[Rfam]
RNA: Small nucleolar RNA SNORA40
RNA sequence: GGCACUUGUGUAUCUGUUUUACUCUAACAUGUGGACUAAGACUUAAGGAUAGAUGCGAAAAAAAAAAAAAUCCUGUUUGUAAUCUAGAGCCCAUUGUUCAGUAUAAGCUUUGAUACACACAGGGAGGGAUAUU
Number, nucleotide and partner (000 for none) at each position: 001g000002g056003c055004a054005c000006u052007u051008g050009u049010g000011u047012a000013u000014c000015u000016g042017u041018u040019u039020u038021a037022c000023u035024c000025u000026a000027a000028c033029a000030u000031g000032u000033g028034g000035a023036c000037u021038a020039a019040g018041a017042c016043u000044u000045a000046a000047g011048g000049a009050u008051a007052g006053a000054u004055g003056c002057g000058a000059a000060a000061a000062a000063a000064a000065a000066a000067a000068a000069a000070a130071u129072c128073c127074u126075g000076u123077u122078u121079g120080u000081a000082a000083u000084c000085u112086a111087g110088a109089g108090c107091c000092c000093a104094u103095u000096g000097u000098u000099c000100a000101g000102u000103a094104u093105a000106a000107g090108c089109u088110u087111u086112g085113a000114u000115a000116c000117a000118c000119a000120c079121a078122g077123g076124g000125a000126g074127g073128g072129a071130u070131a000132u000133u000